About this RNA: Shown here is a 121-nucleotide RNA sequence, a member of the family "Flavobacterium-1 RNA". Rfam classes the family as a small RNA.
RNA sequence: CAAGUUAGGCGUACAUAUCUUGCCCCUGGCAUUUCCCUGGACGUUAGCGAUGAUCCGAAAGGUAGCGACGAUACUUGGACCAGCAGCGCUGGCGUUCCCUGAUCAGGAUGGCGUUGCUGGU
Numbered sequence: 001c002a003a004g005u006u007a008g009g010c011g012u013a014c015a016u017a018u019c020u021u022g023c024c025c026c027u028g029g030c031a032u033u034u035c036c037c038u039g040g041a042c043g044u045u046a047g048c049g050a051u052g053a054u055c056c057g058a059a060a061g062g063u064a065g066c067g068a069c070g071a072u073a074c075u076u077g078g079a080c081c082a083g084c085a086g087c088g089c090u091g092g093c094g095u096u097c098c099c100u101g102a103u104c105a106g107g108a109u110g111g112c113g114u115u116g117c118u119g120g121u
Stems, first nucleotide, its partner, number of pairs: 001077005006071001008069001009044004014039002021031004047066002055062002080120002083117009098107003
The base pairs follow the family's consensus structure, which is taken from published work.